Rfam assigns this 193-nucleotide sequence from Zafaria cholistanensis to the family "c-di-AMP riboswitch aptamer (ydaO/yuaA leader)".
RNA sequence: GUUCGAACGCCUAACCCUGUCGGCGAACCGGAUCCGUUCACGCAUGACCGACAGGGGCGGAGGAUCCACAAAUUCCGGUCUGCGGUAUUCCCUGCCGCAGCCUUGGGGUGAAGUCGGGUCCGUCUACGGGCUCGGCCGGGUUGAUCUCAGACCCGAAUCCGACAGCUAACUUCGCCGGCGCCUGAGAGGUUGU
Numbered sequence: 001g002u003u004c005g006a007a008c009g010c011c012u013a014a015c016c017c018u019g020u021c022g023g024c025g026a027a028c029c030g031g032a033u034c035c036g037u038u039c040a041c042g043c044a045u046g047a048c049c050g051a052c053a054g055g056g057g058c059g060g061a062g063g064a065u066c067c068a069c070a071a072a073u074u075c076c077g078g079u080c081u082g083c084g085g086u087a088u089u090c091c092c093u094g095c096c097g098c099a100g101c102c103u104u105g106g107g108g109u110g111a112a113g114u115c116g117g118g119u120c121c122g123u124c125u126a127c128g129g130g131c132u133c134g135g136c137c138g139g140g141u142u143g144a145u146c147u148c149a150g151a152c153c154c155g156a157a158u159c160c161g162a163c164a165g166c167u168a169a170c171u172u173c174g175c176c177g178g179c180g181c182c183u184g185a186g187a188g189g190u191u192g193u
Stems, first nucleotide, its partner, number of pairs: 008180004015056009057175006067105002106160003114135008138154004